RNA sequence: ACAUACCACGAAUACACUGCGGUUCCUGCGUACCAUCUGCACCCAUCUGACGGCGGCUCGCGACGUUUUGUUAGGG
Numbered sequence: 001a002c003a004u005a006c007c008a009c010g011a012a013u014a015c016a017c018u019g020c021g022g023u024u025c026c027u028g029c030g031u032a033c034c035a036u037c038u039g040c041a042c043c044c045a046u047c048u049g050a051c052g053g054c055g056g057c058u059c060g061c062g063a064c065g066u067u068u069u070g071u072u073a074g075g076g
Base pairs, nucleotide, nucleotide: 004014005013021034022033023032025030047074048073049072050071051070052069053068
The record is a 76-nucleotide RNA sequence from Xanthomonas albilineans, which matches "Xanthomonas sRNA sX9" in Rfam. NCBI's taxonomy places the organism under Bacteria, Pseudomonadati, Lysobacterales, Xanthomonas, Xanthomonas albilineans. The base pairs follow the family's consensus structure, which was predicted with RNAalifold. Rfam 15.1 lists 309 matches to the family in 52 species. The literature on the family includes a 2011 paper in Nucleic Acids Res by Schmidtke et al., "Genome-wide transcriptome analysis of the plant pathogen Xanthomonas identifies sRNAs with putative virulence functions".